[Rfam]
The family of this 96-nucleotide RNA from Pseudogulbenkiania sp. NH8B is "Glycine riboswitch aptamer". A search with the family's covariance model found it, with a score of 63 bits.
RNA sequence: CCCCAUCUAGCAGGAGAGAGUGGCCGCGCAAGCCGGCCGCCGCCGAAGGCGCAAGUGCACCCGCAAUCGCUCAGGCAAAAGGACUGCGAGGAUCGG
Dot-bracket structure: .....(((.((((......(((((((.......))))))).(((((..(((...((......))...))))).))).......)))).))).....